[Rfam]
RNA sequence: AAAUCAAGUGAUGAGAAAAAAAAACUGCAACAAUAUGAUUGGGCAAGUCCCGUGAUUCCUUGUAUUUAAGUCUCUGAUGAUU
Numbered sequence: 001a002a003a004u005c006a007a008g009u010g011a012u013g014a015g016a017a018a019a020a021a022a023a024a025c026u027g028c029a030a031c032a033a034u035a036u037g038a039u040u041g042g043g044c045a046a047g048u049c050c051c052g053u054g055a056u057u058c059c060u061u062g063u064a065u066u067u068a069a070g071u072c073u074c075u076g077a078u079g080a081u082u
Stems, first nucleotide, its partner, number of pairs: 001082002004080003041050003
The record is an 82-nucleotide RNA from Rhododendron williamsianum, which matches "Small nucleolar RNA Z199" in Rfam. The family has 17 seed sequences and 953 matches in Rfam 15.1. On this family, see Chen et al., Nucleic Acids Res 2003: "The high diversity of snoRNAs in plants: identification and comparative study of 120 snoRNA genes from Oryza sativa". Lineage of the source: Eukaryota > Embryophyta > Magnoliopsida > Ericoideae > Rhododendron. A search with the family's covariance model found it, with a score of 81 bits. snoZ199 is a C/D box small nucleolar RNA, which acts as a methylation guide RNA for sites on 18S and 25S rRNA. Rice snoZ199 is reported to be homologous to Arabidopsis snoR13.